[Rfam]
RNA sequence: UCCUCGCUCAAAGGAUCGCAUUCAAAGCUCACACACAAGAGUGUAUACCCAUACCUCUUUCACCUCUUAGCUUUGGGAGAAAGUCCCCGGACAUCCUGCUCAUGUUCUUCUUUUUUAGGGAGGCAUGGUCUUUCUCUUCAGAAAAAGCUGUCAGGCAAUGCGGAAACGCGCCGCCAUAAAAGCAAUUUGAUAGCGGCUUACGCUCCUAUUCUUCCUUUGGAUUACAAAUCUUGCGACACUUGACCGUGGAUACAAUGGCAUUGAUUUGGGUUUGAAGAGAAGAGGAUAAAAAUGUUUUUAUCGUGAUUGGGGUUGCUGUUCGUCGUGGUUCGAUAGUUAUGCGAUUGCUUGUUUGAUUUGUUUCAGACAGGUAACUCAAUGGGGCUCAUUCUUGAGGCGAGG
Number, nucleotide and partner (000 for none) at each position: 001u000002c402003c401004u400005c399006g398007c397008u395009c394010a393011a392012a000013g000014g346015a345016u344017c343018g342019c341020a000021u000022u077023c075024a074025a073026a072027g071028c070029u000030c000031a000032c000033a000034c000035a000036c000037a000038a060039g059040a058041g057042u000043g055044u000045a000046u000047a000048c000049c000050c000051a000052u000053a000054c000055c043056u000057c041058u040059u039060u038061c000062a000063c000064c000065u000066c000067u000068u000069a000070g028071c027072u026073u025074u024075g023076g000077g022078a000079g000080a000081a000082a386083g385084u000085c384086c383087c382088c381089g000090g000091a000092c000093a000094u000095c000096c000097u000098g000099c000100u000101c000102a000103u000104g000105u000106u000107c000108u000109u000110c000111u000112u000113u000114u000115u000116u000117a000118g000119g000120g000121a000122g000123g000124c000125a000126u000127g000128g000129u000130c000131u000132u000133u000134c000135u000136c000137u000138u000139c000140a000141g000142a000143a000144a000145a000146a000147g000148c000149u000150g000151u000152c000153a000154g000155g000156c000157a000158a000159u000160g000161c000162g000163g000164a000165a000166a000167c000168g000169c000170g000171c000172c000173g000174c000175c000176a000177u000178a000179a000180a000181a000182g000183c000184a000185a000186u000187u000188u000189g000190a000191u000192a207193g206194c000195g204196g203197c202198u000199u000200a000201c000202g197203c196204u195205c000206c193207u192208a000209u000210u000211c315212u000213u000214c312215c311216u310217u309218u000219g000220g000221a000222u306223u305224a304225c303226a000227a000228a000229u000230c000231u000232u000233g000234c000235g000236a000237c000238a000239c000240u000241u000242g000243a000244c000245c000246g000247u000248g000249g000250a000251u000252a000253c000254a000255a000256u000257g000258g000259c000260a000261u000262u000263g000264a000265u000266u000267u000268g000269g000270g000271u000272u000273u000274g000275a000276a000277g000278a000279g000280a000281a000282g000283a000284g000285g000286a000287u000288a000289a299290a298291a297292a296293u000294g000295u000296u292297u291298u290299u289300a000301u000302c000303g225304u224305g223306a222307u000308u000309g217310g216311g215312g214313u000314u000315g211316c000317u000318g000319u000320u000321c000322g000323u000324c000325g000326u000327g000328g000329u000330u000331c000332g000333a000334u000335a000336g000337u000338u000339a000340u000341g019342c018343g017344a016345u015346u014347g000348c371349u370350u369351g368352u367353u366354u365355g364356a363357u000358u000359u000360g000361u000362u000363u356364c355365a354366g353367a352368c351369a350370g349371g348372u000373a000374a000375c000376u000377c000378a000379a000380u000381g088382g087383g086384g085385c083386u082387c000388a000389u000390u000391c000392u011393u010394g009395a008396g000397g007398c006399g005400a004401g003402g002
Overview: The family of this 402-nucleotide RNA sequence from Talaromyces atroroseus is "RNase MRP". Rfam links the family to the GO terms ribonuclease MRP activity, rRNA processing and ribonuclease MRP complex. It scores 106 bits against the family's covariance model.